[Rfam]
RNA sequence: UCGGGGCAUGCAGACUCCCGGCAAUCCCAAGACGGUUUUCCGUCCAAGCUCUGC
Numbered sequence: 001u002c003g004g005g006g007c008a009u010g011c012a013g014a015c016u017c018c019c020g021g022c023a024a025u026c027c028c029a030a031g032a033c034g035g036u037u038u039u040c041c042g043u044c045c046a047a048g049c050u051c052u053g054c
Base pairs, nucleotide, nucleotide: 001021002020003019004018005017006016010054011053012052013051014050031044032043033042034041035040
RNA: chrB-b RNA